[Rfam]
A member of the RNA family "Alphaproteobacterial ar14" from Mesorhizobium ciceri, 122 nucleotides long.
The family's RNA type in Rfam is small RNA.
The family has 118 seed sequences and 784 matches in Rfam 15.1.
Its family is annotated with biological process involved in symbiotic interaction in the Gene Ontology.
The sequence is in the family's curated seed alignment.
RNA sequence: GGAAUUUCGCCAGGGUCGACCUCCUCCCCGACCUUGACGAAUACGGUCACCCCUUACCUCCUCCCAAGGGUUGACCACCAAAACGGCGCCCGCCGCACCUCCUCCCGCGGCGGGCGUUGUUU
Numbered sequence: 001g002g003a004a005u006u007u008c009g010c011c012a013g014g015g016u017c018g019a020c021c022u023c024c025u026c027c028c029c030g031a032c033c034u035u036g037a038c039g040a041a042u043a044c045g046g047u048c049a050c051c052c053c054u055u056a057c058c059u060c061c062u063c064c065c066a067a068g069g070g071u072u073g074a075c076c077a078c079c080a081a082a083a084c085g086g087c088g089c090c091c092g093c094c095g096c097a098c099c100u101c102c103u104c105c106c107g108c109g110g111c112g113g114g115c116g117u118u119g120u121u122u
Stems, first nucleotide, its partner, number of pairs: 007040003011036007045076005051070004086117011